[Rfam]
RNA sequence: GUGGGCGGGGGCAGGUGUGUGGUGGGUGGUGGCCUGCGGUGAGCAGGGCCCUCACACCUGCCUCGCCCCCCAG
Number, nucleotide and partner (000 for none) at each position: 001g000002u000003g068004g067005g066006c065007g000008g064009g063010g062011g061012c060013a059014g058015g057016u056017g055018u054019g053020u000021g051022g050023u000024g000025g000026g000027u000028g000029g000030u000031g049032g000033c047034c046035u045036g044037c043038g000039g000040u000041g000042a000043g037044c036045a035046g034047g033048g000049c031050c022051c021052u000053c019054a018055c017056a016057c015058c014059u013060g012061c011062c010063u009064c008065g006066c005067c004068c003069c000070c000071c000072a000073g000
Record summary
Rfam assigns this 73-nucleotide sequence from Homo sapiens to the family "mir-1228 microRNA precursor family". The base pairs follow the family's consensus structure, which was predicted with RNAalifold. NCBI's taxonomy places the organism under Eukaryota, Tetrapoda, Primates, Homininae, Homo. Rfam 15.1 lists 20 matches to the family in 20 species.